The record is a 111-nucleotide RNA sequence from Nocardia brasiliensis, which matches "SAM (S-adenosyl methionine) riboswitch aptamer" in Rfam. The base pairs follow the family's consensus structure, which is taken from published work.

RNA sequence: GGUCAUGAGUACCAGCGCCAAGCCCCGGCUCGCUGGUCGGCAACCCUCCAGCAGCGGUGGGGUGCUCCGGGUGAUGACCCGGCUCUCGACGGUCGAGAGCAAGCGCGCUUC
Numbered sequence: 001g002g003u004c005a006u007g008a009g010u011a012c013c014a015g016c017g018c019c020a021a022g023c024c025c026c027g028g029c030u031c032g033c034u035g036g037u038c039g040g041c042a043a044c045c046c047u048c049c050a051g052c053a054g055c056g057g058u059g060g061g062g063u064g065c066u067c068c069g070g071g072u073g074a075u076g077a078c079c080c081g082g083c084u085c086u087c088g089a090c091g092g093u094c095g096a097g098a099g100c101a102a103g104c105g106c107g108c109u110u111c
Base pairs, nucleotide, nucleotide: 001079002078003077004076009038011037012036013035014034015033016032021030022029039066040065041064044062045061046060048057049056082100083099084098085097086096087095088094089093
Dot-bracket structure: ((((....(.((((((....((......)).)))))))(((..(((.((......))..))).))).........))))..((((((((...))))))))...........

The literature on the family includes a 2008 paper in RNA by Weinberg et al., "The aptamer core of SAM-IV riboswitches mimics the ligand-binding site of SAM-I riboswitches".
Lineage of the source: Bacteria > Bacillati > Nocardiaceae > Nocardia > Nocardia brasiliensis.
The match comes from Rfam's covariance-model search (108 bits).